Background:
The record is a 63-nucleotide RNA from Bacillus cereus, which matches "Bacillus sRNA ncr1241" in Rfam. A reference for the family is Irnov et al. (2010), "Identification of regulatory RNAs in Bacillus subtilis", Nucleic Acids Res. It is annotated as a small RNA. The family's consensus secondary structure is taken from published work.
RNA sequence: CACAUGGCUUUCUAGUAUUCCCCCCCUUUUAUGGACAAAACGUAUUACGUUUUGUCCUUUUUU
Numbered sequence: 001c002a003c004a005u006g007g008c009u010u011u012c013u014a015g016u017a018u019u020c021c022c023c024c025c026c027u028u029u030u031a032u033g034g035a036c037a038a039a040a041c042g043u044a045u046u047a048c049g050u051u052u053u054g055u056c057c058u059u060u061u062u063u
Stems, first nucleotide, its partner, number of pairs: 004027001006025002033057010